[Rfam]
RNA: 6S / SsrS RNA
Organism: Anaerovirgula multivorans
RNA sequence: ACACACCUACUGUGUGCGUGAAUUCGAUAACGUUUUGAGCCAACACAGUUACAUUGGGAAUUCGGCGUUUGUUUAUGGAUUAAAUGCCUCUUUAAUUCAGAGGACUUAAGAAAUAGAUGACAGAGCACCCACCUGCAUAGCAGGUUUCAAAACAAUCGGAUCACGGCAUGGUGGGUAUUUA
Number, nucleotide and partner (000 for none) at each position: 001a000002c000003a178004c000005a176006c175007c174008u173009a172010c171011u170012g169013u168014g167015u166016g000017c165018g164019u163020g000021a000022a000023u000024u000025c000026g000027a000028u000029a000030a000031c000032g153033u152034u151035u150036u149037g148038a147039g145040c144041c143042a000043a000044c000045a000046c000047a000048g000049u000050u000051a000052c000053a000054u000055u000056g130057g129058g128059a000060a000061u125062u124063c123064g000065g121066c000067g000068u000069u000070u119071g118072u117073u116074u115075a114076u113077g000078g000079a000080u000081u000082a107083a106084a000085u000086g000087c103088c102089u101090c100091u099092u000093u000094a000095a000096u000097u000098c000099a091100g090101a089102g088103g087104a000105c000106u083107u082108a000109a000110g000111a000112a000113a076114u075115a074116g073117a072118u071119g070120a000121c065122a000123g063124a062125g061126c000127a000128c058129c057130c056131a000132c000133c000134u000135g000136c000137a000138u000139a000140g000141c000142a000143g041144g040145u039146u000147u038148c037149a036150a035151a034152a033153c032154a000155a000156u000157c000158g000159g000160a000161u000162c000163a019164c018165g017166g015167c014168a013169u012170g011171g010172u009173g008174g007175g006176u005177a000178u003179u000180u000181a000